RNA: Glm Y RNA activator of glmS mRNA
RNA sequence: AGUGGCUCAUUCACCCUGUUAUGAUAGCCCUGCGUAAGCGGACAAGCGCUUCAUAAAACUUCGAAUGACGCACGAUACGGUGCCUGCCGUCCAUCAAACCGAUAACAGAUCACUUUGUGACUUUAUCAAGCUUCGGACGCAACGUUGAGUUAGGCACCACCUC
Numbered sequence: 001a002g003u004g005g006c007u008c009a010u011u012c013a014c015c016c017u018g019u020u021a022u023g024a025u026a027g028c029c030c031u032g033c034g035u036a037a038g039c040g041g042a043c044a045a046g047c048g049c050u051u052c053a054u055a056a057a058a059c060u061u062c063g064a065a066u067g068a069c070g071c072a073c074g075a076u077a078c079g080g081u082g083c084c085u086g087c088c089g090u091c092c093a094u095c096a097a098a099c100c101g102a103u104a105a106c107a108g109a110u111c112a113c114u115u116u117g118u119g120a121c122u123u124u125a126u127c128a129a130g131c132u133u134c135g136g137a138c139g140c141a142a143c144g145u146u147g148a149g150u151u152a153g154g155c156a157c158c159a160c161c162u163c
Stems, first nucleotide, its partner, number of pairs: 005071002007068006019056006026050003079158007088139005101127005141151003